RNA sequence: UCCUCACUUGUCCACUUCUGCCUGCCCUGCCUGAAUGGUGCAGCAGAUUCAAGGGUCAGAGCAGGCAGAAAAGGACAAGUGAGGC
Numbered sequence: 001u002c003c004u005c006a007c008u009u010g011u012c013c014a015c016u017u018c019u020g021c022c023u024g025c026c027c028u029g030c031c032u033g034a035a036u037g038g039u040g041c042a043g044c045a046g047a048u049u050c051a052a053g054g055g056u057c058a059g060a061g062c063a064g065g066c067a068g069a070a071a072a073g074g075a076c077a078a079g080u081g082a083g084g085c
Stems, first nucleotide, its partner, number of pairs: 002084012016070004021065005027059003031055002036045002